[Rfam]
RNA sequence: AUGCUUACCUGGCAGGGAAGGUACCAUGAUCAUGAAGGUGGUUUUCCCAGGGCAAGGCUUAGCCAUUGCACUCCAGAUGUGCUGACCCUGUGGUUUCCCCAAAUGUGGGAAACUCAGCUGCAUCAUUUGUGAUCGUGGAGAGCUGUGUUCGUGCUGUCUGCU
Number, nucleotide and partner (000 for none) at each position: 001a000002u000003g000004c000005u000006u000007a000008c000009c000010u000011g000012g121013c120014a119015g118016g048017g047018a000019a045020g044021g043022u000023a042024c041025c040026a039027u038028g000029a000030u000031c000032a000033u000034g000035a000036a000037g000038g027039u026040g025041g024042u023043u021044u020045u019046c000047c017048c016049a089050g088051g087052g086053c000054a000055a000056g083057g082058c081059u000060u079061a078062g000063c076064c000065a000066u000067u000068g000069c000070a000071c000072u000073c000074c000075a000076g063077a000078u061079g060080u000081g058082c057083u056084g000085a000086c052087c051088c050089u049090g000091u116092g115093g114094u112095u111096u110097c000098c108099c107100c000101a000102a000103a000104u000105g000106u000107g099108g098109g000110a096111a095112a094113c000114u093115c092116a091117g000118c015119u014120g013121c012122a000123u000124c000125a000126u000127u000128u000129g000130u000131g000132a000133u000134c000135g000136u000137g161138g000139a159140g158141a157142g000143c000144u000145g154146u153147g152148u000149u000150c000151g000152u147153g146154c145155u000156g000157u141158c140159u139160g000161c137162u000